[Rfam]
The record is a 105-nucleotide sequence from Treponema maltophilum, which matches "TD-2 RNA" in Rfam. By type it is a small RNA. The family's consensus secondary structure is taken from published work.

RNA sequence: UCCGGCACGGACGCCGGGAAAGCCGUAUAACUGCGAUGUUUCGGUAGGCGAAUGCCGGACGAAACUCGUAAUGAAAAACGUACAGGGAAGUACGUUUUUCAGACC
Numbered sequence: 001u002c003c004g005g006c007a008c009g010g011a012c013g014c015c016g017g018g019a020a021a022g023c024c025g026u027a028u029a030a031c032u033g034c035g036a037u038g039u040u041u042c043g044g045u046a047g048g049c050g051a052a053u054g055c056c057g058g059a060c061g062a063a064a065c066u067c068g069u070a071a072u073g074a075a076a077a078a079c080g081u082a083c084a085g086g087g088a089a090g091u092a093c094g095u096u097u098u099u100c101a102g103a104c105c
Stems, first nucleotide, its partner, number of pairs: 001018006034068003038065006072101012